[Rfam]
RNA sequence: AAAGCAGUCCCGAACUGGCACCGGAUGGUGUGCUUGACGAAAGUCUAGGGGCUGUUUUUGUU
Numbered sequence: 001a002a003a004g005c006a007g008u009c010c011c012g013a014a015c016u017g018g019c020a021c022c023g024g025a026u027g028g029u030g031u032g033c034u035u036g037a038c039g040a041a042a043g044u045c046u047a048g049g050g051g052c053u054g055u056u057u058u059u060g061u062u
Stems, first nucleotide, its partner, number of pairs: 001058011017033001019030004036045003
Rfam assigns this 62-nucleotide RNA to the family "DUF3800-IX RNA". Pairs were carried over by alignment from the consensus structure, which is taken from published work. Actinobacteria, Firmicutes (1 example), Nitrospirae, Proteobacteria, Verrucomicrobia (1 example).